Nucleotides: 127
Base pairs, nucleotide, nucleotide: 003059004058005057006056007055008054009053017047018046019045020044021043022042024039026037069121070120071119074116082106083105084104087102088101089100090099
Number, partner (000 for none) and nucleotide at each position: 001000a002000u003059u004058c005057c006056u007055c008054a009053u010000c011000c012000u013000u014000a015000c016000u017047c018046c019045a020044g021043g022042g023000u024039u025000a026037u027000u028000g029000u030000u031000g032000u033000u034000u035000u036000u037026a038000c039024a040000u041000u042022c043021c044020c045019u046018g047017g048000c049000a050000u051000u052000a053009a054008u055007g056006a057005g058004g059003a060000u061000a062000a063000a064000a065000u066000a067000a068000u069121u070120g071119c072000u073000c074116a075000c076000a077000u078000u079000c080000u081000a082106c083105c084104u085000u086000u087102g088101g089100a090099a091000a092000c093000c094000u095000g096000u097000u098000u099090u100089u101088c102087u103000u104084a105083g106082g107000g108000c109000u110000g111000a112000a113000u114000a115000a116074u117000a118000u119071g120070c121069a122000a123000a124000c125000a126000c127000u

Small nucleolar RNA SNORA49: a 127-nucleotide RNA sequence from Xenopus laevis. Lineage of the source: Eukaryota > Bilateria > Euteleostomi > Anura > Xenopus. The base pairs follow the family's consensus structure, which was predicted with RNAalifold. From the family's description: The snoRNA ACA49 has no identified RNA target. NB genomic sequence 1-nt different from published. Rfam 15.1 lists 722 matches to the family in 550 species.